[Rfam]
A member of the RNA family "Small nucleolar RNA Z103" from Brassica napus, 103 nucleotides long.
Rfam links the family to the GO terms nucleolus and RNA processing.
The match comes from Rfam's covariance-model search (83 bits).
For this family Rfam cites "The high diversity of snoRNAs in plants: identification and comparative study of 120 snoRNA genes from Oryza sativa" (Chen et al., Nucleic Acids Res, 2003).
Rfam classes the family as a C/D-box small nucleolar RNA.

RNA sequence: AUGGAGGUGAUGACAAUUUCCCCAGAUGAUCGAAUCUGAUUAUACUGAGCGAAUAGAAUUUUCCUCUCAUCAGAGGAAAGUCAAGCCAAUUAGUCUGAUCCUU
Number, nucleotide and partner (000 for none) at each position: 001a103002u000003g101004g100005a099006g000007g000008u000009g000010a000011u000012g000013a000014c000015a000016a000017u000018u000019u000020c000021c000022c000023c000024a000025g000026a000027u000028g000029a000030u000031c000032g000033a000034a000035u000036c000037u000038g000039a000040u000041u000042a000043u000044a000045c000046u000047g000048a000049g000050c000051g000052a000053a000054u000055a000056g000057a000058a000059u000060u000061u000062u000063c000064c000065u000066c000067u000068c000069a000070u000071c000072a000073g000074a000075g000076g000077a000078a000079a000080g000081u000082c000083a000084a000085g000086c000087c000088a000089a000090u000091u000092a000093g000094u000095c000096u000097g000098a000099u005100c004101c003102u000103u001